[Rfam]
A member of the RNA family "Small nucleolar RNA snoR145" from Aquilegia coerulea, 164 nucleotides long. The base pairs follow the family's consensus structure, which was predicted with mfold.

RNA sequence: AUGCGAAGGUCCCAGCAGAGAGGUAGGAACUCUAUAUUGAGACCUCUCUAACAUGAAUUAUUACCCUUCGCAGAUUGAGAUCAUUAUCAGCUGUUUCGUAGGAUGCCCAAAUAGAUCACGAGAUCAAGAUUCUUGGUGUAUCUUGAACCCUCAGCUACAUUUAA
Numbered sequence: 001a002u003g004c005g006a007a008g009g010u011c012c013c014a015g016c017a018g019a020g021a022g023g024u025a026g027g028a029a030c031u032c033u034a035u036a037u038u039g040a041g042a043c044c045u046c047u048c049u050a051a052c053a054u055g056a057a058u059u060a061u062u063a064c065c066c067u068u069c070g071c072a073g074a075u076u077g078a079g080a081u082c083a084u085u086a087u088c089a090g091c092u093g094u095u096u097c098g099u100a101g102g103a104u105g106c107c108c109a110a111a112u113a114g115a116u117c118a119c120g121a122g123a124u125c126a127a128g129a130u131u132c133u134u135g136g137u138g139u140a141u142c143u144u145g146a147a148c149c150c151u152c153a154g155c156u157a158c159a160u161u162u163a164a
Stems, first nucleotide, its partner, number of pairs: 003071007011020001013018001026047002030041003090155004102142002105139002107136004

Rfam 15.1 lists 286 matches to the family in 194 species.
By type it is an H/ACA-box small nucleolar RNA.
On this family, see Chen and Wu, Nucleic Acids Res 2009: "Mining small RNA sequencing data: a new approach to identify small nucleolar RNAs in Arabidopsis".
NCBI's taxonomy places the organism under Eukaryota, Streptophyta, Euphyllophyta, Mesangiospermae, Aquilegia.